[Rfam]
Shown here is a 252-nucleotide RNA from Trifolium subterraneum, a member of the family "MIR2655 microRNA precursor family". A search with the family's covariance model found it, with a score of 124 bits.
RNA sequence: CCCUUAUCUUUUAAAAAUUACAACUUGGUCCCUUAUCUUUAUUUUAGGUUUCAAGUUGGUCCCUUCCGUCAAUUUUUUAACUAUUUUUGUUAAAUUUCGACACGUGGCAAACUAUUUUGGACACGUGGCUCACUUGUACAGAUGACACGUGUCCAAAUUUAACGGUAACAGUAAAAAAAUUGACGGAAGAGACCAACUUGAAACCUAAAAAAAGGAUAAGGGACUAACUUGAAACUUUUAAAAGAUAAGGUA
Numbered sequence: 001c002c003c004u005u006a007u008c009u010u011u012u013a014a015a016a017a018u019u020a021c022a023a024c025u026u027g028g029u030c031c032c033u034u035a036u037c038u039u040u041a042u043u044u045u046a047g048g049u050u051u052c053a054a055g056u057u058g059g060u061c062c063c064u065u066c067c068g069u070c071a072a073u074u075u076u077u078u079a080a081c082u083a084u085u086u087u088u089g090u091u092a093a094a095u096u097u098c099g100a101c102a103c104g105u106g107g108c109a110a111a112c113u114a115u116u117u118u119g120g121a122c123a124c125g126u127g128g129c130u131c132a133c134u135u136g137u138a139c140a141g142a143u144g145a146c147a148c149g150u151g152u153c154c155a156a157a158u159u160u161a162a163c164g165g166u167a168a169c170a171g172u173a174a175a176a177a178a179a180u181u182g183a184c185g186g187a188a189g190a191g192a193c194c195a196a197c198u199u200g201a202a203a204c205c206u207a208a209a210a211a212a213a214g215g216a217u218a219a220g221g222g223a224c225u226a227a228c229u230u231g232a233a234a235c236u237u238u239u240a241a242a243a244g245a246u247a248a249g250g251u252a
Base pairs, nucleotide, nucleotide: 002250003249004248005247006246007245008244023229025227027225028224029223031221032220033219034218035217036216037215038214039213040212042210043209045207046206047205